[Rfam]
Nucleotides: 074
Stems, first nucleotide, its partner, number of pairs: 003071005009065005015059005021053001023051005
Number, partner (000 for none) and nucleotide at each position: 001000c002000g003071g004070u005069g006068u007067g008000a009065g010064g011063a012062g013061g014000c015059c016058g017057u018056a019055c020000a021053u022000u023051g024050u025049g026048c027047a028000g029000a030000g031000c032000g033000a034000u035000g036000g037000c038000g039000g040000a041000a042000a043000g044000u045000g046000c047027u048026g049025c050024a051023u052000u053021g054000c055019g056018u057017g058016c059015g060000a061013c062012c063011u064010c065009c066000c067007u068006a069005c070004a071003c072000g073000g074000c